RNA sequence: CAGCCUGAGGAGCGCUGCAACGGUUAGCCUGUUUAAUCGGCUAACCGCUAGGCUCAGGCAAUCACUCAAUGAUUAACUGCGCUCAUUCAAU
Numbered sequence: 001c002a003g004c005c006u007g008a009g010g011a012g013c014g015c016u017g018c019a020a021c022g023g024u025u026a027g028c029c030u031g032u033u034u035a036a037u038c039g040g041c042u043a044a045c046c047g048c049u050a051g052g053c054u055c056a057g058g059c060a061a062u063c064a065c066u067c068a069a070u071g072a073u074u075a076a077c078u079g080c081g082c083u084c085a086u087u088c089a090a091u
Stems, first nucleotide, its partner, number of pairs: 003059006021047009

A member of the RNA family "SAH (S-adenosyl-L-homocysteine) riboswitch aptamer" from Thiothrix eikelboomii, 91 nucleotides long. The source organism's lineage runs through Bacteria, Pseudomonadota, Gammaproteobacteria, Thiotrichales and Thiothrix. It scores 60 bits against the family's covariance model.